[Rfam]
About this RNA:
The family of this 58-nucleotide sequence from Metabacillus litoralis is "Bacillaceae-1 RNA". The organism belongs to Metabacillus, within Bacteria. The base pairs follow the family's consensus structure, which is taken from published work. The family's RNA type in Rfam is small RNA.

RNA sequence: AGUAGGGGAUUGCCGACUUCGCCACGUCCUGUGGCAAAGUCGGCAAUCGUAAUCCUGU
Numbered sequence: 001a002g003u004a005g006g007g008g009a010u011u012g013c014c015g016a017c018u019u020c021g022c023c024a025c026g027u028c029c030u031g032u033g034g035c036a037a038a039g040u041c042g043g044c045a046a047u048c049g050u051a052a053u054c055c056u057g058u
Stems, first nucleotide, its partner, number of pairs: 011045007021035005